Rfam assigns this 67-nucleotide RNA to the family "pemK RNA".
RNA sequence: ACAAUGAUACUUCCGCAGCCAUAUGGCGCGGCCCGCGGAGUACCCGGGGGCAGAGAGAUUCUGAUGA
Numbered sequence: 001a002c003a004a005u006g007a008u009a010c011u012u013c014c015g016c017a018g019c020c021a022u023a024u025g026g027c028g029c030g031g032c033c034c035g036c037g038g039a040g041u042a043c044c045c046g047g048g049g050g051c052a053g054a055g056a057g058a059u060u061c062u063g064a065u066g067a
Stems, first nucleotide, its partner, number of pairs: 012064001013031004032050003036046003051063003